[Rfam]
RNA sequence: GGGUAAUGUCUCCUUACCCCUAUCAACGGAGGCACUCGGCCAUUCUGUGGGUGAAACCAAUGUUCACCUUAGCGCCCGUCGCAAGGGAAUGGUGUGAGGUUCGGGUUCGAUGCCCA
Numbered sequence: 001g002g003g004u005a006a007u008g009u010c011u012c013c014u015u016a017c018c019c020c021u022a023u024c025a026a027c028g029g030a031g032g033c034a035c036u037c038g039g040c041c042a043u044u045c046u047g048u049g050g051g052u053g054a055a056a057c058c059a060a061u062g063u064u065c066a067c068c069u070u071a072g073c074g075c076c077c078g079u080c081g082c083a084a085g086g087g088a089a090u091g092g093u094g095u096g097a098g099g100u101u102c103g104g105g106u107u108c109g110a111u112g113c114c115c116a
Stems, first nucleotide, its partner, number of pairs: 001019004007034007035098004039093008049069007072082003101116001103115004
About this RNA:
Shown here is a 116-nucleotide RNA sequence from Virgibacillus sp. MSP4-1, a member of the family "epsC RNA". The base pairs follow the family's consensus structure, which is taken from published work. The organism belongs to Virgibacillus, within Bacteria. The family has 30 seed sequences and 450 matches in Rfam 15.1.